[Rfam]
Rfam assigns this 321-nucleotide sequence from Thiopseudomonas alkaliphila to the family "rne-II RNA".
It is annotated as a cis-regulatory element.
It scores 55 bits against the family's covariance model.
The base pairs follow the family's consensus structure, which is taken from published work.

RNA sequence: AUAACUCGGUGGAGAUGCACAAUAAACAUUGCGCGUUGCUUAGAUAAACUAGACGCUUCAUCACGUCCGCCUGUGUUUACUGAUUCCUCCUCCCUGUGUACUCGGUGCUGAUUCAUCGGCUCUUACUAGCCCGCUAUCACGCGCAAGUCAUUAAUUCUUGCUGCUUGUGCCCUAGCUCAGAAUCGCACUGUUUGUGGAGACGCCGUCGCCGCCAAGCUUAGGCUUGGUUUGCUAGACACAGCUUAACCCAAGCUGAGCGCACCGCCUGUAUUCUACGUGAGCAUCACUGCCGCACGGCCCUACUUGGAUUCCGGAAAGUGA
Numbered sequence: 001a002u003a004a005c006u007c008g009g010u011g012g013a014g015a016u017g018c019a020c021a022a023u024a025a026a027c028a029u030u031g032c033g034c035g036u037u038g039c040u041u042a043g044a045u046a047a048a049c050u051a052g053a054c055g056c057u058u059c060a061u062c063a064c065g066u067c068c069g070c071c072u073g074u075g076u077u078u079a080c081u082g083a084u085u086c087c088u089c090c091u092c093c094c095u096g097u098g099u100a101c102u103c104g105g106u107g108c109u110g111a112u113u114c115a116u117c118g119g120c121u122c123u124u125a126c127u128a129g130c131c132c133g134c135u136a137u138c139a140c141g142c143g144c145a146a147g148u149c150a151u152u153a154a155u156u157c158u159u160g161c162u163g164c165u166u167g168u169g170c171c172c173u174a175g176c177u178c179a180g181a182a183u184c185g186c187a188c189u190g191u192u193u194g195u196g197g198a199g200a201c202g203c204c205g206u207c208g209c210c211g212c213c214a215a216g217c218u219u220a221g222g223c224u225u226g227g228u229u230u231g232c233u234a235g236a237c238a239c240a241g242c243u244u245a246a247c248c249c250a251a252g253c254u255g256a257g258c259g260c261a262c263c264g265c266c267u268g269u270a271u272u273c274u275a276c277g278u279g280a281g282c283a284u285c286a287c288u289g290c291c292g293c294a295c296g297g298c299c300c301u302a303c304u305u306g307g308a309u310u311c312c313g314g315a316a317a318g319u320g321a
Stems, first nucleotide, its partner, number of pairs: 011090004020082002023079007033070003037044001052067004091198003095194001201259003205237003208232002211229001215224003241253004268287002271283001273281001299318001301316001303314002